[Rfam]
RNA sequence: GGCUGUAGUGGCCCAACGGGGAAAGCUCUCGCAAUUCUCGUCCGGACUGAUCCAAACCCAGUUCGAACCCCCCAGCUGGCGCCCAGCACGAAUGCCGCGGUGGCCGUCCACUCGCUUGGGUAACCAGCGAUGCUGCGUGCGGCCCUAAGCAAUGAAGGUGACACUUGAGGGAGGCUUCACUCUGCAGAGGCACCUUCACCGUCGCAUGGCGUGCUGGAUUACGAUCGCUGGGGGCUUGGGUUAGUCGGACGAGGUGGAGAUGACGACUUCUUUUUU
Number, nucleotide and partner (000 for none) at each position: 001g013002g012003c011004u000005g000006u000007a000008g000009u000010g000011g003012c002013c001014c000015a000016a000017c000018g273019g272020g271021g270022a269023a268024a000025g000026c000027u000028c000029u260030c259031g000032c257033a000034a255035u000036u254037c253038u252039c251040g000041u249042c248043c247044g000045g000046a245047c244048u243049g242050a241051u240052c239053c238054a237055a236056a000057c000058c000059c000060a000061g068062u067063u000064c000065g000066a000067a062068c061069c000070c234071c233072c000073c230074a229075g228076c227077u000078g225079g000080c223081g222082c000083c217084c216085a215086g214087c213088a212089c211090g210091a000092a207093u206094g205095c204096c000097g202098c201099g200100g199101u000102g144103g000104c142105c141106g140107u139108c135109c132110a000111c000112u130113c129114g128115c127116u126117u000118g125119g124120g000121u000122a000123a000124c119125c118126a116127g115128c114129g113130a112131u000132g109133c000134u000135g108136c000137g000138u000139g107140c106141g105142g104143c000144c102145c149146u000147a000148a000149g145150c000151a000152a000153u198154g197155a196156a195157g194158g193159u192160g000161a000162c000163a000164c189165u188166u187167g000168a000169g000170g000171g182172a181173g180174g000175c000176u000177u000178c000179a000180c173181u172182c171183u000184g000185c000186a000187g166188a165189g164190g000191c000192a159193c158194c157195u156196u155197c154198a153199c100200c099201g098202u097203c000204g095205c094206a093207u092208g000209g000210c090211g089212u088213g087214c086215u085216g084217g083218a000219u000220u000221a000222c081223g080224a000225u078226c000227g076228c075229u074230g073231g000232g000233g071234g070235c000236u055237u054238g053239g052240g051241u050242u049243a048244g047245u046246c000247g043248g042249a041250c000251g039252a038253g037254g036255u034256g000257g032258a000259g030260a029261u000262g000263a000264c000265g000266a000267c000268u023269u022270c021271u020272u019273u018274u000275u000276u000

Notes: Fungal signal recognition particle RNA: a 276-nucleotide RNA sequence from Verticillium dahliae. It is annotated as a non-coding RNA gene. A search with the family's covariance model found it, with a score of 153 bits. The organism belongs to Verticillium, within Eukaryota.